[Rfam]
RNA sequence: GGAUGUGAGGGCGAUCUGGCUGCGACAUCUGCCACCCUGUUGAUCGCCAGGGUUGAUUUGGCUGAUCUGGCUGGCUAGGCGGGUGUCCCUUCCUCCCUCACUGCUCCAUGUGCGUCCCUCCCGAAGCUGCACACCCCAAUAGAAGAGGACCUAGAGGAGGACCGUUCUUUGGUCAAGGGUAUACGAGUAGCUGCGCUCCCCUGCUAGAACCUCCAAACAAGCUCUCAAGGUCCAUUUGUAGGAAAACGUAGGGUAGUCAAGCUUCCAAGAUUCCAGACACAUCCAAAUGAGGUGCUGCAUGUGGCAGUCUGCCUUUCCAA
Numbered sequence: 001g002g003a004u005g006u007g008a009g010g011g012c013g014a015u016c017u018g019g020c021u022g023c024g025a026c027a028u029c030u031g032c033c034a035c036c037c038u039g040u041u042g043a044u045c046g047c048c049a050g051g052g053u054u055g056a057u058u059u060g061g062c063u064g065a066u067c068u069g070g071c072u073g074g075c076u077a078g079g080c081g082g083g084u085g086u087c088c089c090u091u092c093c094u095c096c097c098u099c100a101c102u103g104c105u106c107c108a109u110g111u112g113c114g115u116c117c118c119u120c121c122c123g124a125a126g127c128u129g130c131a132c133a134c135c136c137c138a139a140u141a142g143a144a145g146a147g148g149a150c151c152u153a154g155a156g157g158a159g160g161a162c163c164g165u166u167c168u169u170u171g172g173u174c175a176a177g178g179g180u181a182u183a184c185g186a187g188u189a190g191c192u193g194c195g196c197u198c199c200c201c202u203g204c205u206a207g208a209a210c211c212u213c214c215a216a217a218c219a220a221g222c223u224c225u226c227a228a229g230g231u232c233c234a235u236u237u238g239u240a241g242g243a244a245a246a247c248g249u250a251g252g253g254u255a256g257u258c259a260a261g262c263u264u265c266c267a268a269g270a271u272u273c274c275a276g277a278c279a280c281a282u283c284c285a286a287a288u289g290a291g292g293u294g295c296u297g298c299a300u301g302u303g304g305c306a307g308u309c310u311g312c313c314u315u316u317c318c319a320a
Base pairs, nucleotide, nucleotide: 001107002106003105005101006100007099008098009097010096011095013092014091018089019088024087025086026085027084028083029082030081031080032079033078035074036073037070038069039068042067043066044065045064046062047061048060115160116159117157118156119155120154123136126134140153141152142151190262191261192260196256197255199253200252201251202250203249204248212243213242214241217239218238219237220236221235289315290314291313292312293311294308295307296306297305298304
Dot-bracket structure: (((.(((((((.((...((....((((((((((.(((((..(((((((...........))).)))))))..))...)))))))))))).))..)))))))...))).......((((((..(..(.......).)...(((........))))))).)).............................(((...((.((((((.......(((..(((((.............))))).)))....)))))).))...)))..........................((((((((((.....)))))..))))).....